[Rfam]
RNA sequence: UAAAAAGGGAAACAGAUUAACUUCUCGGCAUCAUCGCUGAAACGUCUGUCUCCUCUACCUGCUGUGGU
Dot-bracket structure: ...........((((((.......(((((......)))))...)))))).....((((.....)))).
Numbered sequence: 001u002a003a004a005a006a007g008g009g010a011a012a013c014a015g016a017u018u019a020a021c022u023u024c025u026c027g028g029c030a031u032c033a034u035c036g037c038u039g040a041a042a043c044g045u046c047u048g049u050c051u052c053c054u055c056u057a058c059c060u061g062c063u064g065u066g067g068u
Stems, first nucleotide, its partner, number of pairs: 012049006025040005055067004

Bacillaceae-1 RNA: a 68-nucleotide RNA.